[Rfam]
RNA sequence: GUUAGUGCUGUGAUGAGGCAAUUUAUGUGGACUAGAGUUUCUGAUCUGGUAUCUGAACCAGAAUCUGAAGACUAACCCUUGGCUGUCUGAGCUUAAC
Numbered sequence: 001g002u003u004a005g006u007g008c009u010g011u012g013a014u015g016a017g018g019c020a021a022u023u024u025a026u027g028u029g030g031a032c033u034a035g036a037g038u039u040u041c042u043g044a045u046c047u048g049g050u051a052u053c054u055g056a057a058c059c060a061g062a063a064u065c066u067g068a069a070g071a072c073u074a075a076c077c078c079u080u081g082g083c084u085g086u087c088u089g090a091g092c093u094u095a096a097c
Stems, first nucleotide, its partner, number of pairs: 001097004007092002038070004045063001046061005